[Rfam]
RNA: Eukaryotic large subunit ribosomal RNA, nucleotides 1453 to 1889
Organism: Tetrahymena pyriformis
Nucleotides: 437
Stems, first nucleotide, its partner, number of pairs: 015033006034435004043415004049395002054078006063071002085391003089150002094144002096112002100109002119137003154171005174387004179383005190199003207366006216351004221346007229336003232252006256306005265296003268292003275285003313331006401410002417429004
Number, partner (000 for none) and nucleotide at each position: 001000g002000g003000u004000a005000g006000u007000a008000g009000c010000a011000a012000a013000u014000a015033u016032u017031c018030a019029a020028a021000u022000g023000a024000g025000a026000a027000c028020u029019u030018u031017g032016a033015a034435g035434a036433c037432c038000g039000a040000a041000g042000u043415g044414g045413a046412g047000a048000a049395g050394g051000g052000u053000u054078c055077c056076a057075u058074g059073a060000g061000a062000a063071c064070a065000g066000c067000a068000a069000u070064u071063g072000u073059u074058c075057a076056u077055g078054g079000g080000u081000u082000a083000c084000u085391c086390g087389a088000u089150c090149c091000u092000a093000a094144g095143a096112c097111a098000u099000a100109g101108g102000u103000u104000a105000a106000c107000u108101c109100c110000u111097u112096g113000c114000a115000a116000u117000a118000c119137a120136a121135g122000a123000a124000g125000a126000c127000g128000u129000u130000c131000u132000c133000g134000u135121u136120u137119u138000c139000g140000u141000u142000g143095u144094c145000a146000a147000a148000a149090g150089g151000g152000a153000a154171u155170g156169a157168g158167g159000u160000u161000a162000a163000u164000a165000u166000u167158c168157c169156u170155c171154a172000a173000g174387c175386u176385g177384g178000a179383c180382g181381u182380g183379g184000u185000a186000u187000a188000g189000a190199g191198u192197g193000g194000u195000a196000a197192c198191a199190c200000a201000a202000a203000g204000a205000a206000a207366c208365c209364c210363g211362g212361a213000g214000a215000c216351g217350u218349c219348a220000g221346c222345a223344g224343g225342a226341g227340c228000c229336a230335c231334u232252g233251g234250a235249a236248g237247a238000g239000u240000u241000a242000u243000c244000u245000u246000u247237u248236c249235u250234u251233u252232u253000u254000a255000a256306c257305a258304u259303a260302c261000u262000a263000u264000g265296g266295c267294c268292a269291u270290g271000a272000a273000a274000a275285u276284g277283g278000a279000u280000u281000a282000u283277c284276c285275a286000g287000a288000g289000a290270u291269a292268u293000c294267g295266g296265c297000u298000g299000u300000a301000c302260g303259u304258a305257u306256g307000g308000c309000a310000g311000a312000g313331c314330a315329g316328c317327u318326c319000a320000c321000c322000c323000u324000a325000a326318g327317a328316g329315c330314u331313g332000u333000c334231a335230g336229u337000u338000g339000c340227g341226c342225u343224u344223c345222u346221g347000a348219u349218g350217a351216c352000c353000c354000u355000u356000g357000a358000a359000a360000a361212u362211c363210u364209g365208g366207g367000g368000g369000a370000g371000a372000c373000a374000u375000a376000a377000u378000u379183u380182c381181a382180c383179g384177c385176c386175a387174g388000u389087u390086c391085g392000u393000a394050c395049c396000c397000a398000u399000a400000a401410c402409c403000g404000c405000a406000u407000c408000a409402g410401g411000u412046c413045u414044c415043c416000a417429a418428g419427g420426u421000u422000a423000g424000c425000a426420g427419c428418c429417u430000c431000u432037g433036g434035u435034c436000c437000a